[Rfam]
The record is a 75-nucleotide RNA sequence from Anisodus acutangulus, which matches "Plastid-ycf2 5UTR RNA" in Rfam. Rfam's curators write: Plastid ycf2 is a non-coding RNA (ncRNA) recognised in plastids. The family's consensus secondary structure was predicted with LocARNA. The family's RNA type in Rfam is cis-regulatory element. The source organism's lineage runs through Eukaryota, Embryophyta, Mesangiospermae, asterids and Anisodus.
RNA sequence: GUGCAUCCAAUAGGAAUUGAAACUAAGAAUUCGCCAAUUAUGAGUUGGGUGCAUUAACUAUUCAGCCAUAGAUGC
Numbered sequence: 001g002u003g004c005a006u007c008c009a010a011u012a013g014g015a016a017u018u019g020a021a022a023c024u025a026a027g028a029a030u031u032c033g034c035c036a037a038u039u040a041u042g043a044g045u046u047g048g049g050u051g052c053a054u055u056a057a058c059u060a061u062u063c064a065g066c067c068a069u070a071g072a073u074g075c
Stems, first nucleotide, its partner, number of pairs: 003075005011025003040069003044066008